Early nodulin 40: a 257-nucleotide RNA sequence from Lupinus angustifolius. The base pairs follow the family's consensus structure, which is taken from published work. By type it is a non-coding RNA gene. The literature on the family includes a 2007 paper in Nucleic Acids Res by Gultyaev and Roussis, "Identification of conserved secondary structures and expansion segments in enod40 RNAs reveals new enod40 homologues in plants". NCBI's taxonomy places the organism under Eukaryota, rosids, genistoids sensu lato, core genistoids, Lupinus.
RNA sequence: AUGAAGCUCUUUUGGCAAAAAUCCAUCUAUGGUUCUUGAUUCUUGAAGAAGCAUGAAUUAACAUUGUGAAAGGGUCCUCACCAUUCACACUACUCCACUUCCAACAGUUUGUUUGGGCUAUAGCUAUUGGUUUCUGUAUUAUUCUCUCUGAGUAGCAGAAGCAUAUAAGCAUUCUCCAUUGGAGCAAAGGCUUUCUUUGGCUACAGCUAGGGCAAGCCGGCAAGUCACAAAAAGGCAUGGACUUCAUUAUGGGUCCU
Numbered sequence: 001a002u003g004a005a006g007c008u009c010u011u012u013u014g015g016c017a018a019a020a021a022u023c024c025a026u027c028u029a030u031g032g033u034u035c036u037u038g039a040u041u042c043u044u045g046a047a048g049a050a051g052c053a054u055g056a057a058u059u060a061a062c063a064u065u066g067u068g069a070a071a072g073g074g075u076c077c078u079c080a081c082c083a084u085u086c087a088c089a090c091u092a093c094u095c096c097a098c099u100u101c102c103a104a105c106a107g108u109u110u111g112u113u114u115g116g117g118c119u120a121u122a123g124c125u126a127u128u129g130g131u132u133u134c135u136g137u138a139u140u141a142u143u144c145u146c147u148c149u150g151a152g153u154a155g156c157a158g159a160a161g162c163a164u165a166u167a168a169g170c171a172u173u174c175u176c177c178a179u180u181g182g183a184g185c186a187a188a189g190g191c192u193u194u195c196u197u198u199g200g201c202u203a204c205a206g207c208u209a210g211g212g213c214a215a216g217c218c219g220g221c222a223a224g225u226c227a228c229a230a231a232a233a234g235g236c237a238u239g240g241a242c243u244u245c246a247u248u249a250u251g252g253g254u255c256c257u
Stems, first nucleotide, its partner, number of pairs: 066095001107217006127205001240255005